The record is a 90-nucleotide RNA sequence from Solanum tuberosum, which matches "MIR7994 microRNA precursor family" in Rfam. Its family is annotated with RISC complex and miRNA-mediated post-transcriptional gene silencing in the Gene Ontology. Rfam's curators put it in the seed alignment. The source organism's lineage runs through Eukaryota, Viridiplantae, Streptophytina, Mesangiospermae and Solanum. Rfam 15.1 lists 4 matches to the family in 2 species.
[Rfam]
RNA sequence: AGUUUAUGUCCAAGUAUAAUAUAUAAUAUUCAAGAUUAGAACUUUAGUCCCAAUCUUGAAUAUUAUAUAUUAUACUUGGGCAUAAACUCC
Numbered sequence: 001a002g003u004u005u006a007u008g009u010c011c012a013a014g015u016a017u018a019a020u021a022u023a024u025a026a027u028a029u030u031c032a033a034g035a036u037u038a039g040a041a042c043u044u045u046a047g048u049c050c051c052a053a054u055c056u057u058g059a060a061u062a063u064u065a066u067a068u069a070u071u072a073u074a075c076u077u078g079g080g081c082a083u084a085a086a087c088u089c090c
Stems, first nucleotide, its partner, number of pairs: 001088037039050001041048002